mir-193 microRNA precursor family: a 77-nucleotide RNA sequence from Acipenser ruthenus.
Gene Ontology terms of the family: miRNA-mediated post-transcriptional gene silencing and RISC complex.
A reference for the family is Lagos-Quintana et al. (2003), "New microRNAs from mouse and human", RNA.
The source organism's lineage runs through Eukaryota, Eumetazoa, Bilateria, Vertebrata and Acipenser.
[Rfam]
RNA sequence: GUUAGGGAAUGGGUCUUUGCGGGCGAGGUGAGUUGUGUGUCUCCAGUCAACUGGCCUACAAAGUCCCAGUUCCCAGC
Numbered sequence: 001g002u003u004a005g006g007g008a009a010u011g012g013g014u015c016u017u018u019g020c021g022g023g024c025g026a027g028g029u030g031a032g033u034u035g036u037g038u039g040u041c042u043c044c045a046g047u048c049a050a051c052u053g054g055c056c057u058a059c060a061a062a063g064u065c066c067c068a069g070u071u072c073c074c075a076g077c
Base pairs, nucleotide, nucleotide: 003075005073006072007071008070010068011067012066013065015063016062017061018060019059021057022056023055024054026052027051029049030048